mir-9242 microRNA precursor family: a 64-nucleotide RNA sequence from Myotis lucifugus. The base pairs follow the family's consensus structure, which was predicted with RNAalifold. The family has 2 seed sequences and 940 matches in Rfam 15.1.

RNA sequence: GGUCUCCCUCUGUGGGGUGAUCAAUGGUGGGGCCCCCAGAUCGAUCGCCCCACAGAGGGAGACC
Numbered sequence: 001g002g003u004c005u006c007c008c009u010c011u012g013u014g015g016g017g018u019g020a021u022c023a024a025u026g027g028u029g030g031g032g033c034c035c036c037c038a039g040a041u042c043g044a045u046c047g048c049c050c051c052a053c054a055g056a057g058g059g060a061g062a063c064c
Stems, first nucleotide, its partner, number of pairs: 001064022024041002029036002